A member of the RNA family "Burkholderia RNA 7 (anti-hemB)" from Chitinimonas arctica, 90 nucleotides long.
It is annotated as a small RNA.
A reference for the family is Weinberg et al. (2007), "Identification of 22 candidate structured RNAs in bacteria using the CMfinder comparative genomics pipeline", Nucleic Acids Res.
About the family: This RNA motif was identified by computational search in b-proteobacteria Burkholderia.

RNA sequence: CCUCCCGCGUUUAUCCCUGAGCGGGCGCCCGGCUUUAAUCGCUGGGUUUUCGACCCCGGCCUACAUUCCCCUUGGGCCGGGGUUUUUUAU
Number, nucleotide and partner (000 for none) at each position: 001c000002c000003u000004c025005c024006c023007g022008c021009g000010u000011u000012u000013a000014u000015c000016c000017c000018u000019g000020a000021g008022c007023g006024g005025g004026c000027g047028c046029c045030c044031g043032g042033c041034u000035u000036u000037a000038a000039u000040c000041g033042c032043u031044g030045g029046g028047u027048u000049u000050u000051c000052g000053a000054c082055c081056c080057c079058g078059g077060c076061c075062u074063a073064c000065a000066u000067u000068c000069c000070c000071c000072u000073u063074g062075g061076g060077c059078c058079g057080g056081g055082g054083u000084u000085u000086u000087u000088u000089a000090u000
Record summary
Rfam links the family to the GO terms protein binding and bacterial biofilm matrix. The source organism's lineage runs through Bacteria, Pseudomonadota, Betaproteobacteria, Neisseriales and Chitinimonas. It scores 53 bits against the family's covariance model.